[Rfam]
RNA sequence: GGGCGGAGGCCGGAUCCCAGGCUGUGUCCCCAGCGCCCUGUGCUGGGGCCUGCGCUGUUGGAUUCCGGCUUCGGGCGGCGCCGCCGCCU
Dot-bracket structure: ((((((..(((.(..((.(((.((.(((.(((((((...(.((....))).))))))..)))..))).))).)).).).))..))))))
RNA: mir-8799 microRNA precursor family
Organism: Nyctereutes procyonoides